[Rfam]
RNA sequence: UUGUCAGUGAGGUUAAUCCUUACCUGUUCCUCCUUAUGGAGAAACAGAAAUGAUGAAUGGAGGAGGAUGAGUGCUGAUUACACGAUCUCCCCCACUGCUCUGAAUGACAACUCAGGGUGGUGUGAUUCUGAC
Numbered sequence: 001u002u003g004u005c006a007g008u009g010a011g012g013u014u015a016a017u018c019c020u021u022a023c024c025u026g027u028u029c030c031u032c033c034u035u036a037u038g039g040a041g042a043a044a045c046a047g048a049a050a051u052g053a054u055g056a057a058u059g060g061a062g063g064a065g066g067a068u069g070a071g072u073g074c075u076g077a078u079u080a081c082a083c084g085a086u087c088u089c090c091c092c093c094a095c096u097g098c099u100c101u102g103a104a105u106g107a108c109a110a111c112u113c114a115g116g117g118u119g120g121u122g123u124g125a126u127u128c129u130g131a132c
Stems, first nucleotide, its partner, number of pairs: 024047003028043001030041004069089002074084001075080001093122009

The record is a 132-nucleotide RNA from Aquarana catesbeiana, which matches "U8 small nucleolar RNA" in Rfam. NCBI's taxonomy places the organism under Eukaryota, Opisthokonta, Metazoa, Deuterostomia, Aquarana.